[Rfam]
RNA sequence: UAAAAGAAAAGGCACCCCUUCGGAAACGAAGCGGACGCAAAGCUAUAGGGGCUAACGUAGUCUAUCUACUAUGCCAGCCAGUUACCGUU
Numbered sequence: 001u002a003a004a005a006g007a008a009a010a011g012g013c014a015c016c017c018c019u020u021c022g023g024a025a026a027c028g029a030a031g032c033g034g035a036c037g038c039a040a041a042g043c044u045a046u047a048g049g050g051g052c053u054a055a056c057g058u059a060g061u062c063u064a065u066c067u068a069c070u071a072u073g074c075c076a077g078c079c080a081g082u083u084a085c086c087g088u089u
Stems, first nucleotide, its partner, number of pairs: 012038002017033001018031005041083004048079002050075003057069004
The record is an 89-nucleotide sequence from Alicyclobacillus sp. SO9, which matches "c-di-GMP-I riboswitch aptamer" in Rfam. Pairs were carried over by alignment from the consensus structure, which is taken from published work. The match comes from Rfam's covariance-model search (67 bits).